This 47-nucleotide sequence from Phrynocephalus forsythii belongs to the Rfam family "Histone 3' UTR stem-loop". The mRNAs of metazoan histone genes lack a poly-A tail. 3' end processing occurs at a site between a highly conserved stem-loop (modelled by this family) and a purine rich region around 20 nts downstream (the histone downstream element, or HDE). The stem-loop is bound by a 31 kDa stem-loop binding protein (SLBP - also termed the histone hairpin binding protein, or HBP). Together with U7 snRNA binding of the HDE, SLBP binding nucleate s the formation of the processing complex. The histone 3' UTR stem-loop is also involved in nucleocytoplasmic transport of the mRNA, and in stability regulation and translation efficiency in the cytoplasm. It is annotated as a cis-regulatory element. Gene Ontology term of the family: mRNA 3'-end processing by stem-loop binding and cleavage. It scores 37 bits against the family's covariance model.
RNA sequence: CCAAAGGCUCUUUUAAGAGCCACCUACUUUUGUCAGCAAAAGAGCAG
Number, nucleotide and partner (000 for none) at each position: 001c000002c000003a000004a000005a000006g021007g020008c019009u018010c017011u016012u000013u000014u000015a000016a011017g010018a009019g008020c007021c006022a000023c000024c000025u000026a000027c000028u000029u000030u000031u000032g000033u000034c000035a000036g000037c000038a000039a000040a000041a000042g000043a000044g000045c000046a000047g000